Rfam assigns this 81-nucleotide RNA sequence from Fusobacterium varium to the family "ZMP/ZTP riboswitch aptamer (pfl RNA motif)". The organism belongs to Fusobacterium varium, within Bacteria. Rfam links the family to the GO terms one-carbon metabolic process and regulation of purine nucleotide biosynthetic process.

RNA sequence: UAUCAGUUAUAUGACUGACGGAACGUGGAAUUAACCACAUGAAGUAUAACGAUGAUAAUGCCGACCGUCUGGGCAAAUAAG
Numbered sequence: 001u002a003u004c005a006g007u008u009a010u011a012u013g014a015c016u017g018a019c020g021g022a023a024c025g026u027g028g029a030a031u032u033a034a035c036c037a038c039a040u041g042a043a044g045u046a047u048a049a050c051g052a053u054g055a056u057a058a059u060g061c062c063g064a065c066c067g068u069c070u071g072g073g074c075a076a077a078u079a080a081g
Stems, first nucleotide, its partner, number of pairs: 006050007015041001017069005025038004059075004